The record is a 123-nucleotide RNA sequence from Lonsdalea quercina, which matches "Histidine operon leader" in Rfam.
Taxonomically the source falls in Lonsdalea (Bacteria, Pseudomonadota, Gammaproteobacteria, Pectobacteriaceae).
Rfam links the family to the GO term histidine biosynthetic process.
On this family, see Kolter and Yanofsky, Annu Rev Genet 1982: "Attenuation in amino acid biosynthetic operons".
Rfam's curators write: At least 6 amino acid operons are known to be regulated by attenuation.
It is annotated as a cis-regulatory leader.
RNA sequence: CCAUCAUCACCAUCACCCUGACUAGUCUUUCAGGCGAUUGGUGCUGGAAGACGGUUAGAUCUUCCAGUGGCGCAGAACGUUAAAGAGAGCCCUCGGAAGAUCAUCUUCCGAGGGUUUUUUUAU
Numbered sequence: 001c002c003a004u005c006a007u008c009a010c011c012a013u014c015a016c017c018c019u020g021a022c023u024a025g026u027c028u029u030u031c032a033g034g035c036g037a038u039u040g041g042u043g044c045u046g047g048a049a050g051a052c053g054g055u056u057a058g059a060u061c062u063u064c065c066a067g068u069g070g071c072g073c074a075g076a077a078c079g080u081u082a083a084a085g086a087g088a089g090c091c092c093u094c095g096g097a098a099g100a101u102c103a104u105c106u107u108c109c110g111a112g113g114g115u116u117u118u119u120u121u122a123u
Base pairs, nucleotide, nucleotide: 008043009042010041012038013037014036017034018033019032020031021030044067045066046065047064048063049062050061051060084120085119086118087117088116089115090114091113092112093111094110095109096108097107098106099105